The family of this 101-nucleotide RNA sequence from a Gemmatimonadaceae bacterium is "TPP riboswitch aptamer (THI element)". It scores 64 bits against the family's covariance model. The source organism's lineage runs through Bacteria, Pseudomonadati, Gemmatimonadia, Gemmatimonadales and Gemmatimonadaceae.

[Rfam]
RNA sequence: GACAGUGGCACGGGGUGCCCGCGCGGUCGCGCGGGCUGAGAUCACACCCGUCGAACCUGAUCUGGGUCAUUCCAGCGAAGGGAGCGUCACUGGUGCAGGUG
Numbered sequence: 001g002a003c004a005g006u007g008g009c010a011c012g013g014g015g016u017g018c019c020c021g022c023g024c025g026g027u028c029g030c031g032c033g034g035g036c037u038g039a040g041a042u043c044a045c046a047c048c049c050g051u052c053g054a055a056c057c058u059g060a061u062c063u064g065g066g067u068c069a070u071u072c073c074a075g076c077g078a079a080g081g082g083a084g085c086g087u088c089a090c091u092g093g094u095g096c097a098g099g100u101g
Stems, first nucleotide, its partner, number of pairs: 006089004011050004016044001017036007056081003062075004